[Rfam]
RNA sequence: AAGAUGACAUCACAUUUGUGAGUUAUACUUUUUUCGGAUUGUUUUAUAUACGAUGGAACAUCAUCUGCUUGGAUCCCGACAGACCGAGACAGACAC
Numbered sequence: 001a002a003g004a005u006g007a008c009a010u011c012a013c014a015u016u017u018g019u020g021a022g023u024u025a026u027a028c029u030u031u032u033u034u035c036g037g038a039u040u041g042u043u044u045u046a047u048a049u050a051c052g053a054u055g056g057a058a059c060a061u062c063a064u065c066u067g068c069u070u071g072g073a074u075c076c077c078g079a080c081a082g083a084c085c086g087a088g089a090c091a092g093a094c095a096c
Base pairs, nucleotide, nucleotide: 001030002029003028004026005025006024007023008022010021011020065092066091067090068088069087070086071085072084074083075082
RNA: pan motif